About this RNA:
Shown here is a 62-nucleotide RNA from Enterococcus pallens, a member of the family "Fluoride riboswitch aptamer (crcB RNA motif)". The base pairs follow the family's consensus structure, which is taken from published work. A search with the family's covariance model found it, with a score of 39 bits.
[Rfam]
RNA sequence: UCGUGAAUAAGGGAUGGUGUUCCCGAUAACUGCUAAAAUUAGCUGAUGACACCUGUUUAACU
Numbered sequence: 001u002c003g004u005g006a007a008u009a010a011g012g013g014a015u016g017g018u019g020u021u022c023c024c025g026a027u028a029a030c031u032g033c034u035a036a037a038a039u040u041a042g043c044u045g046a047u048g049a050c051a052c053c054u055g056u057u058u059a060a061c062u
Stems, first nucleotide, its partner, number of pairs: 011024003016053006032043004
Dot-bracket structure: ..........[[[..((((((]]].......((((....))))....)))))).........